[Rfam]
RNA sequence: GUGAGGUGAUGAGUUUAUCCAUUCUCUGAGUGCAGUGGUGCUGCCCUCCUGCAGCACCCCAGUUCCUGUUCUAGGGUCUGGGUGCUGUGCAGCCUCCAGAGACCCUCCAGUCUCCCCGUGUCCUACUGGGGGCUGCUGUGGUGUGUGGCUGGCUGCCUGCAGGAGUGAAGUGGUGCCGGCAAGGUUGGAGCCCCUCUUUGGGGGGUUCCAUCCUCACUGAGACGAGGCAUGAUGUCUGAUCAC
Dot-bracket structure: .........(((((.(...(.(((.((..((...((.(((((((.((.((.((...(.((.(.((((.....)))).)..)).)....((((((.......((....(((((.(((.(((...))).)))))))).....))........)))))).))..)).).)..)))))).).)).(((.((((.((((.......)))).)))).))).))..))..))))....).))....))).
The record is a 243-nucleotide sequence from Lophotis ruficrista, which matches "Small nucleolar RNA SNORD17" in Rfam. The snoRNA HBI-43 belongs to the C/D family of snoRNAs, guiding 2'O-ribose methylation at position U3797 of the 28S rRNA. Pseudouridylation in position U3797 is predicted to be guided by the H/ACA snoRNA ACA48. A reference for the family is Huttenhofer et al. (2001), "RNomics: an experimental approach that identifies 201 candidates for novel, small, non-messenger RNAs in mouse", EMBO J. Rfam 15.1 lists 1,015 matches to the family in 568 species. It scores 117 bits against the family's covariance model.